[Rfam]
RNA: Y RNA
Organism: Gulo gulo
RNA sequence: GACUGAUCAGAGUGCAAUGGUGUUUACAAUUAAUUGAUCACAGCCAGUUACAGGUUUCUUUGUUCUUUCUCCACUCCCGCUACUUUACUUGAAUAGAAGA
Numbered sequence: 001g002a003c004u005g006a007u008c009a010g011a012g013u014g015c016a017a018u019g020g021u022g023u024u025u026a027c028a029a030u031u032a033a034u035u036g037a038u039c040a041c042a043g044c045c046a047g048u049u050a051c052a053g054g055u056u057u058c059u060u061u062g063u064u065c066u067u068u069c070u071c072c073a074c075u076c077c078c079g080c081u082a083c084u085u086u087a088c089u090u091g092a093a094u095a096g097a098a099g100a
Stems, first nucleotide, its partner, number of pairs: 003096003007092002010090002014086001016081001018079003022076001028064003032060002